A member of the RNA family "c-di-GMP-I riboswitch aptamer" from Gracilibacillus halophilus, 86 nucleotides long. GEMM was predicted in a large-scale screen for bacterial structured RNA regulatory elements. NCBI's taxonomy places the organism under Bacteria, Bacillati, Caryophanales, Bacillaceae, Gracilibacillus halophilus.
[Rfam]
RNA sequence: CAAACGAAAGGGCAAACUUAUCGAAAGGUAAGGACGCAAAGCCUAAGGAUCUAACGUCAUUUGACUAUGAUAGCCGGGUUGCCGAA
Number, nucleotide and partner (000 for none) at each position: 001c000002a000003a000004a000005c000006g000007a000008a000009a000010g000011g000012g037013c036014a000015a000016a000017c032018u031019u030020a029021u028022c027023g000024a000025a000026a000027g022028g021029u020030a019031a018032g017033g000034a000035c000036g013037c012038a000039a000040a080041g079042c078043c077044u000045a000046a000047g075048g074049a071050u070051c069052u000053a000054a000055c000056g065057u064058c063059a000060u000061u000062u000063g058064a057065c056066u000067a000068u000069g051070a050071u049072a000073g000074c048075c047076g000077g043078g042079u041080u040081g000082c000083c000084g000085a000086a000